[Rfam]
RNA sequence: AAAUGAAAAAGAAAAUAGCCAAAUCUAAGUAUUAGACGACCUUCCAGUCUACCUGAUGUAUGAUCUCUGUAGUUCUGAAA
Dot-bracket structure: ............................(((((....(((......))).....))))).....................
RNA: Small nucleolar RNA U2-19
Organism: Equus asinus